Annotation: The family of this 122-nucleotide RNA is "Bacteriophage Diversity-Generating Retroelement RNA". Rfam classes the family as a small RNA. A reference for the family is Handa et al. (2025), "RNA control of reverse transcription in a diversity-generating retroelement", Nature.
[Rfam]
RNA sequence: GGUAAGUAAUUGCUACGGCGUUAUUUCCCGACCAUAUGGUCAGCCAUUUUUAUCCCCCUUCGGGGAACACACUUAUAGGUUCGGUAGAACACUUAGUCAUUAAUUUAAAAGGUGGUGCCGGC
Number, nucleotide and partner (000 for none) at each position: 001g028002g027003u000004a026005a025006g024007u023008a022009a021010u020011u000012g019013c018014u000015a000016c000017g000018g013019c012020g010021u009022u008023a007024u006025u005026u004027c002028c001029c000030g000031a000032c000033c000034a000035u000036a000037u000038g000039g000040u000041c000042a000043g000044c000045c000046a000047u000048u000049u000050u000051u000052a000053u000054c000055c000056c065057c064058c063059u000060u000061c000062g000063g058064g057065g056066a000067a000068c000069a000070c000071a000072c000073u000074u000075a000076u000077a000078g000079g122080u000081u121082c120083g119084g118085u117086a000087g000088a000089a000090c114091a113092c112093u111094u000095a000096g000097u000098c000099a106100u000101u000102a000103a000104u000105u000106u099107a000108a000109a000110a000111g093112g092113u091114g090115g000116u000117g085118c084119c083120g082121g081122c079

It is one of the family's seed sequences.